[Rfam]
RNA sequence: CCGCAGCAUCAAGAGUCGGGAUCGUGCCCGGCACCAACCUGCUCCCGAGCAAGGUGGUACCUCCGCAGACAUGUGGAGGGAUGUGGCCGGACCGGCAACAAUCGGGUUAUC
Numbered sequence: 001c002c003g004c005a006g007c008a009u010c011a012a013g014a015g016u017c018g019g020g021a022u023c024g025u026g027c028c029c030g031g032c033a034c035c036a037a038c039c040u041g042c043u044c045c046c047g048a049g050c051a052a053g054g055u056g057g058u059a060c061c062u063c064c065g066c067a068g069a070c071a072u073g074u075g076g077a078g079g080g081a082u083g084u085g086g087c088c089g090g091a092c093c094g095g096c097a098a099c100a101a102u103c104g105g106g107u108u109a110u111c
Base pairs, nucleotide, nucleotide: 006084007083008082009081010080015032017031019029020028033058034057035056038054039053040052041050042049043048086096087095088094089093
RNA: SAM-I/IV (S-adenosyl methionine) riboswitch aptamer